glmS glucosamine-6-phosphate activated ribozyme aptamer: a 158-nucleotide RNA sequence from Caloramator fervidus. The family's RNA type in Rfam is riboswitch.
RNA sequence: GUUUAAAAUAAAGCGCCGGGACUUAUCAGCUAUAUGCUGAUAAGUUGACGAGGACAGGGUUUAUCGAGUUAUCGGCGGAUGCCCUGCGGCUGACCACCGUUAGCUACCCUACAAAACCGGAAAGCGAUUUUCGGGACAAAGAGGGAGCAGGUCAAAAA
Numbered sequence: 001g002u003u004u005a006a007a008a009u010a011a012a013g014c015g016c017c018g019g020g021a022c023u024u025a026u027c028a029g030c031u032a033u034a035u036g037c038u039g040a041u042a043a044g045u046u047g048a049c050g051a052g053g054a055c056a057g058g059g060u061u062u063a064u065c066g067a068g069u070u071a072u073c074g075g076c077g078g079a080u081g082c083c084c085u086g087c088g089g090c091u092g093a094c095c096a097c098c099g100u101u102a103g104c105u106a107c108c109c110u111a112c113a114a115a116a117c118c119g120g121a122a123a124g125c126g127a128u129u130u131u132c133g134g135g136a137c138a139a140a141g142a143g144g145g146a147g148c149a150g151g152u153c154a155a156a157a158a
Stems, first nucleotide, its partner, number of pairs: 020046008029037001055086005064075004087099003103148003107145003117134007